[Rfam]
RNA sequence: AGUAGUAGAAGCAUAGUUGGGUGAGAAUCCCAACCGCCGCAGGGGCUAGGUUUCCUCGGCAACGUUCGUCAGCCGAGGGUUAGUCGGUCCUAAGGUGCGUCGUAACUCGAACGUACCGAAUGGGAAACAGGUUAAUAUUCCUGUACCAUGUGGUUUUAAGUCGCAAGACCCUGACGCUUUGGGAUAUGCUCAGCGGGACUGUCAUCCCGUCCAAGCACAUAAACUGGUGGAGUACCGUAAUGGUGAGAAUCCGGUGAAAGUGUGAUGGGGUAACUAAGCAAAUUCCUUGAGCCCAUGAAAAGGGAAUCACAUGUCCGUACCGAGAACCGACACAGGUGCCCCUCGCUGAAGAGGUGUAGGCGUGU
Numbered sequence: 001a002g003u004a005g006u007a008g009a010a011g012c013a014u015a016g017u018u019g020g021g022u023g024a025g026a027a028u029c030c031c032a033a034c035c036g037c038c039g040c041a042g043g044g045g046c047u048a049g050g051u052u053u054c055c056u057c058g059g060c061a062a063c064g065u066u067c068g069u070c071a072g073c074c075g076a077g078g079g080u081u082a083g084u085c086g087g088u089c090c091u092a093a094g095g096u097g098c099g100u101c102g103u104a105a106c107u108c109g110a111a112c113g114u115a116c117c118g119a120a121u122g123g124g125a126a127a128c129a130g131g132u133u134a135a136u137a138u139u140c141c142u143g144u145a146c147c148a149u150g151u152g153g154u155u156u157u158a159a160g161u162c163g164c165a166a167g168a169c170c171c172u173g174a175c176g177c178u179u180u181g182g183g184a185u186a187u188g189c190u191c192a193g194c195g196g197g198a199c200u201g202u203c204a205u206c207c208c209g210u211c212c213a214a215g216c217a218c219a220u221a222a223a224c225u226g227g228u229g230g231a232g233u234a235c236c237g238u239a240a241u242g243g244u245g246a247g248a249a250u251c252c253g254g255u256g257a258a259a260g261u262g263u264g265a266u267g268g269g270g271u272a273a274c275u276a277a278g279c280a281a282a283u284u285c286c287u288u289g290a291g292c293c294c295a296u297g298a299a300a301a302g303g304g305a306a307u308c309a310c311a312u313g314u315c316c317g318u319a320c321c322g323a324g325a326a327c328c329g330a331c332a333c334a335g336g337u338g339c340c341c342c343u344c345g346c347u348g349a350a351g352a353g354g355u356g357u358a359g360g361c362g363u364g365u
Base pairs, nucleotide, nucleotide: 016034017033018032019031020030021029035362036361037360038359043341044340045339046338049321050320054078055077056076057075058074059073064070085317086316087315089123090122094117095116096115097114098113099112100110101109102108127144128143129142130141131140147313148312149311150310151309152308153307154306170304171303172302176292177291178290179289181287182286183285184284187280188279189278190277193210194209195208196207197206215263216262217261218260224254225253226252227251234244235243236242269274327336328335344356345355346354